[Rfam]
RNA sequence: GCGGAAAACAUAUUUCCGUUCACUCCUCACACCACACUCCGUCCGGACGGCGUUCGGGCGGCUU
Numbered sequence: 001g002c003g004g005a006a007a008a009c010a011u012a013u014u015u016c017c018g019u020u021c022a023c024u025c026c027u028c029a030c031a032c033c034a035c036a037c038u039c040c041g042u043c044c045g046g047a048c049g050g051c052g053u054u055c056g057g058g059c060g061g062c063u064u
Stems, first nucleotide, its partner, number of pairs: 001019007040060007
RNA: Cyanobacterial functional RNA 1